Description:
This 117-nucleotide RNA from Streptomyces diastatochromogenes belongs to the Rfam family "Streptomyces-metK RNA". It scores 105 bits against the family's covariance model. By type it is a small RNA.

RNA sequence: GCGAGACGGGUGGGCCGGUGGCACGGUGCGACCCGUAAACUGUUCUCGGACGACGCCAGGCGCAGCCCUGUGCCCGUCCGCAAAUGAUCAGCCAGCAGCCGCUGCAACCCCAGGGAG
Number, nucleotide and partner (000 for none) at each position: 001g000002c000003g000004a000005g000006a000007c000008g000009g000010g000011u000012g000013g000014g000015c000016c000017g000018g000019u000020g000021g000022c000023a000024c000025g000026g000027u000028g000029c000030g000031a000032c000033c000034c000035g000036u000037a000038a000039a000040c000041u000042g000043u000044u000045c000046u000047c000048g079049g078050a077051c076052g075053a000054c000055g000056c072057c070058a069059g068060g067061c000062g000063c000064a000065g000066c000067c060068c059069u058070g057071u000072g056073c000074c000075c052076g051077u050078c049079c048080g000081c000082a000083a000084a000085u000086g000087a000088u000089c000090a000091g000092c000093c104094a103095g102096c101097a000098g000099c000100c000101g096102c095103u094104g093105c000106a000107a000108c000109c000110c000111c000112a000113g000114g000115g000116a000117g000